This 48-nucleotide RNA sequence from Sedimentibacter sp. zth1 belongs to the Rfam family "uup RNA". The family's RNA type in Rfam is cis-regulatory element. The organism belongs to Sedimentibacter, within Bacteria. Pairs were carried over by alignment from the consensus structure, which is taken from published work.

RNA sequence: AAAUGCUUAGCUCUGCACAAAUUUAUAUGAUGAAGUAUUGUACAGAGC
Numbered sequence: 001a002a003a004u005g006c007u008u009a010g011c012u013c014u015g016c017a018c019a020a021a022u023u024u025a026u027a028u029g030a031u032g033a034a035g036u037a038u039u040g041u042a043c044a045g046a047g048c
Stems, first nucleotide, its partner, number of pairs: 011047005017041003